[Rfam]
RNA: Small nucleolar RNA R64/Z200 family
Organism: Actinidia chinensis
RNA sequence: UUUCUGCGAGGAUGAAUCAUCGAAAAAUUCACAUGUCAGACUUCAGAGAUUUAUUAAAAUCGAUGAGAAGAGAUUUUCAAUCUUCCCUGAGCAGAAG
Number, nucleotide and partner (000 for none) at each position: 001u097002u096003u095004c094005u093006g092007c091008g000009a000010g000011g000012a000013u000014g000015a000016a000017u000018c000019a000020u000021c000022g000023a000024a000025a000026a000027a000028u000029u000030c000031a000032c000033a000034u000035g000036u000037c000038a000039g000040a000041c000042u000043u000044c000045a000046g000047a000048g061049a060050u059051u058052u000053a000054u000055u000056a000057a000058a051059a050060u049061c048062g000063a000064u000065g000066a000067g000068a000069a000070g000071a000072g000073a000074u000075u000076u000077u000078c000079a000080a000081u000082c000083u000084u000085c000086c000087c000088u000089g000090a000091g007092c006093a005094g004095a003096a002097g001